[Rfam]
Nucleotides: 175
Stems, first nucleotide, its partner, number of pairs: 001159002036156006046085002086141003094119004122135004
Number, partner (000 for none) and nucleotide at each position: 001159c002158c003000g004000g005000u006000g007000u008000c009000c010000c011000c012000u013000c014000c015000g016000a017000g018000u019000c020000g021000u022000c023000a024000c025000c026000a027000c028000g029000g030000g031000c032000a033000g034000g035000a036156g037155c038154g039153g040152g041151g042000g043000a044000a045000c046085c047084a048000c049000c050000c051000g052000u053000g054000c055000a056000a057000g058000a059000c060000c061000g062000g063000c064000c065000g066000g067000c068000g069000c070000g071000a072000a073000a074000g075000c076000g077000c078000u079000g080000g081000c082000c083000u084047u085046g086141g087140g088139g089000u090000g091000a092000a093000g094119c095118c096117c097116c098000u099000c100000g101000c102000g103000c104000g105000c106000c107000a108000g109000u110000c111000g112000c113000g114000c115000g116097g117096g118095g119094g120000c121000c122135g123134g124133g125132c126000a127000g128000c129000c130000c131000a132125g133124c134123c135122c136000g137000a138000a139088c140087c141086c142000g143000a144000c145000a146000g147000c148000u149000c150000a151041c152040c153039u154038c155037g156036u157000a158002g159001g160000c161000g162000u163000a164000c165000g166000g167000g168000a169000a170000g171000g172000a173000c174000c175000a